[Rfam]
RNA sequence: AAUACGAGACGUCUGCACCGCACAUGUCUCAGGAAGAGAUCGUCCGUAGUAGCAAGCUGCUGGAGGGUAUCUCGGUCAGCAUCUCGAUUGGCAAGACGUCCACUCCGGGUACGCGCCGCUCAUGCGAUGACGCCUUCAUCGCGUGAGCGGCGUGUACCUGAAGCGGACAUCUUGCCAAACGAAAUGCUGACCGAGAUACCCUGAAGUAGCUUGCUAAUAGUGGCGAUGUCCUCCUGAGACAUGUGCGGCGCAGACGUCCCGCAUU
Numbered sequence: 001a002a003u004a005c006g007a008g009a010c011g012u013c014u015g016c017a018c019c020g021c022a023c024a025u026g027u028c029u030c031a032g033g034a035a036g037a038g039a040u041c042g043u044c045c046g047u048a049g050u051a052g053c054a055a056g057c058u059g060c061u062g063g064a065g066g067g068u069a070u071c072u073c074g075g076u077c078a079g080c081a082u083c084u085c086g087a088u089u090g091g092c093a094a095g096a097c098g099u100c101c102a103c104u105c106c107g108g109g110u111a112c113g114c115g116c117c118g119c120u121c122a123u124g125c126g127a128u129g130a131c132g133c134c135u136u137c138a139u140c141g142c143g144u145g146a147g148c149g150g151c152g153u154g155u156a157c158c159u160g161a162a163g164c165g166g167a168c169a170u171c172u173u174g175c176c177a178a179a180c181g182a183a184a185u186g187c188u189g190a191c192c193g194a195g196a197u198a199c200c201c202u203g204a205a206g207u208a209g210c211u212u213g214c215u216a217a218u219a220g221u222g223g224c225g226a227u228g229u230c231c232u233c234c235u236g237a238g239a240c241a242u243g244u245g246c247g248g249c250g251c252a253g254a255c256g257u258c259c260c261g262c263a264u265u
Base pairs, nucleotide, nucleotide: 001265002264003263005261006260008258009257010256011255012254013253014252015251016250018248019247020246021245022244023243024242025241026240027239028238029237030236031235032234033233034232036230037229039227040226041225042224043223044222047219048218050216051215052214053213054212055211056210057209058208059207060206061205064202065201066200067199068198069197070196071195072194073193074192075191076190077189078188079187080186081185082184084182085181086180088178089177090176091175092174093173094172095171096170098168099167100166101165103163104162106160107159108158109157110156111155112154113153114152115151116150117149118148119147120146121145122144123143124142125141126140127139128138129137130136